RNA sequence: GUGGCACCAAGCAUGAGGCAACAACUGCAUUACUUGCAAGAAAGGCACAAAAUCAUUAGAUGAUUACUUGUGGCUUUCUUGCAAGUUGUGCAGUUGCUGCCUCAAGCUUGCUGCCUCC
Dot-bracket structure: .......(((((..((.((........(((..(.(((((..(((.(.........................).)))..))))).)..)))........)).))..)))))........
Numbered sequence: 001g002u003g004g005c006a007c008c009a010a011g012c013a014u015g016a017g018g019c020a021a022c023a024a025c026u027g028c029a030u031u032a033c034u035u036g037c038a039a040g041a042a043a044g045g046c047a048c049a050a051a052a053u054c055a056u057u058a059g060a061u062g063a064u065u066a067c068u069u070g071u072g073g074c075u076u077u078c079u080u081g082c083a084a085g086u087u088g089u090g091c092a093g094u095u096g097c098u099g100c101c102u103c104a105a106g107c108u109u110g111c112u113g114c115c116u117c118c
Stems, first nucleotide, its partner, number of pairs: 008110005015103002018100002028090003033085001035083005042076003046072001
The record is a 118-nucleotide sequence from Oryza sativa, which matches "MIR444 microRNA precursor family" in Rfam. On this family, see Yao et al., Genome Biol 2007: "Cloning and characterization of microRNAs from wheat (Triticum aestivum L.)". Taxonomically the source falls in Oryza (Eukaryota, Viridiplantae, Magnoliopsida, Petrosaviidae). The sequence is in the family's curated seed alignment.